[Rfam]
RNA sequence: GGGGCAGGGGGGUACUCGCCGUGUGGCGGGGCCUGCCCGCGUGAACAGGGUCGCGCGAGAGCGUGGCCGGUGGUUGUCGCUCGGGGGUGUUCGCCG
Numbered sequence: 001g002g003g004g005c006a007g008g009g010g011g012g013u014a015c016u017c018g019c020c021g022u023g024u025g026g027c028g029g030g031g032c033c034u035g036c037c038c039g040c041g042u043g044a045a046c047a048g049g050g051u052c053g054c055g056c057g058a059g060a061g062c063g064u065g066g067c068c069g070g071u072g073g074u075u076g077u078c079g080c081u082c083g084g085g086g087g088u089g090u091u092c093g094c095c096g
Stems, first nucleotide, its partner, number of pairs: 002038007015030006049068008
Dot-bracket structure: .(((((((......((((((....)))))).)))))))..........((((((((....))))))))............................

This 96-nucleotide RNA sequence from Streptomyces sp. AJS327 belongs to the Rfam family "che1 RNA". Lineage of the source: Bacteria > Bacillati > Actinomycetota > Actinomycetes > Streptomyces. It is annotated as a small RNA. Pairs were carried over by alignment from the consensus structure, which is taken from published work.